[Rfam]
Rfam assigns this 173-nucleotide RNA sequence from Lactococcus hircilactis to the family "Lysine riboswitch aptamer". The base pairs follow the family's consensus structure, which is taken from published work. NCBI's taxonomy places the organism under Bacteria, Bacillota, Bacilli, Streptococcaceae, Lactococcus.
RNA sequence: CACAUCGAUAGAGGUUGCAACCAAUAUGAACUUACGCUGAGCAAAAAGCACUGCGAUGAAUCGUAAGCCGGAGCGGUUGCCGAAAAAUUAAUGACUUGCUUGACCAUUAAUUUUGGGCCAAUAGGAAAAACCUGUUGGACUGUCGCGAGUAUUCGCGGAGUGCUAUUCGUAUU
Numbered sequence: 001c002a003c004a005u006c007g008a009u010a011g012a013g014g015u016u017g018c019a020a021c022c023a024a025u026a027u028g029a030a031c032u033u034a035c036g037c038u039g040a041g042c043a044a045a046a047a048g049c050a051c052u053g054c055g056a057u058g059a060a061u062c063g064u065a066a067g068c069c070g071g072a073g074c075g076g077u078u079g080c081c082g083a084a085a086a087a088u089u090a091a092u093g094a095c096u097u098g099c100u101u102g103a104c105c106a107u108u109a110a111u112u113u114u115g116g117g118c119c120a121a122u123a124g125g126a127a128a129a130a131c132c133u134g135u136u137g138g139a140c141u142g143u144c145g146c147g148a149g150u151a152u153u154c155g156c157g158g159a160g161u162g163c164u165a166u167u168c169g170u171a172u173u
Stems, first nucleotide, its partner, number of pairs: 007167005017080006025072001031067006038060001084114010115141002118138008143158006